A member of the RNA family "Purine riboswitch aptamer" from Litchfieldia salsa, 102 nucleotides long.
Nucleotides: 102
Stems, first nucleotide, its partner, number of pairs: 019087007029049001032046004058078007
Number, partner (000 for none) and nucleotide at each position: 001000u002000a003000g004000u005000u006000u007000a008000u009000u010000a011000g012000a013000u014000g015000a016000u017000u018000a019087c020086c021085u022084c023083a024082u025081a026000u027000a028000a029049u030000c031000u032046u033045g034044g035043g036000a037000a038000u039000a040000u041000g042000g043035c044034c045033c046032a047000u048000a049029a050000g051000u052000u053000u054000c055000u056000a057000c058078c059077c060076g061075a062074u063073a064072a065000c066000c067000g068000u069000a070000a071000a072064u073063u074062a075061u076060u077059g078058g079000a080000c081025u082024a083023u084022g085021a086020g087019g088000g089000a090000a091000a092000g093000u094000g095000a096000u097000c098000g099000u100000u101000a102000g

Lineage of the source: Bacteria > Bacillati > Bacilli > Bacillaceae > Litchfieldia.
Pairs were carried over by alignment from the consensus structure, which is taken from published work.